[Rfam]
RNA sequence: AUGGGCGUCUUACCAGACACGGUUAGAUUUGAUAAUUUGUGUCUAAUACUGUCUGGUAAUGCCGUCCAU
Dot-bracket structure: .((((((.(((((((((((..((((((..............))))))..)))))))))).).)))))).
The family of this 69-nucleotide sequence from Cyprinus carpio is "mir-8/mir-141/mir-200 microRNA precursor family". On this family, see Lagos-Quintana et al., Science 2001: "Identification of novel genes coding for small expressed RNAs". The base pairs follow the family's consensus structure, which was predicted with RNAalifold. Gene Ontology terms of the family: miRNA-mediated post-transcriptional gene silencing and RISC complex.